[Rfam]
RNA sequence: AGCUUUGCACAGUGGCAGUAUCGCAGCCAACAAGGUUUAUCCGAGGCACGAUUGUUGCUAAUUGAAAAAUAAGAAAACAUAAGGCCUGAAGUAGUUUUAGUGUAAGAGAUGGAAAUCCAGAAGUCAUUUGCACAUUUGACAGUUAAAGACAUUUGA
Numbered sequence: 001a002g003c004u005u006u007g008c009a010c011a012g013u014g015g016c017a018g019u020a021u022c023g024c025a026g027c028c029a030a031c032a033a034g035g036u037u038u039a040u041c042c043g044a045g046g047c048a049c050g051a052u053u054g055u056u057g058c059u060a061a062u063u064g065a066a067a068a069a070u071a072a073g074a075a076a077a078c079a080u081a082a083g084g085c086c087u088g089a090a091g092u093a094g095u096u097u098u099a100g101u102g103u104a105a106g107a108g109a110u111g112g113a114a115a116u117c118c119a120g121a122a123g124u125c126a127u128u129u130g131c132a133c134a135u136u137u138g139a140c141a142g143u144u145a146a147a148g149a150c151a152u153u154u155g156a
Base pairs, nucleotide, nucleotide: 020052021051022050023049026047027046028045034042035041086130089129090128091127092126094124095123096122097121098120143156144155145154146153

Overview: U4 spliceosomal RNA: a 156-nucleotide RNA from Gulo gulo. The organism belongs to Gulo, within Eukaryota. Its Rfam clan is "U4 clan".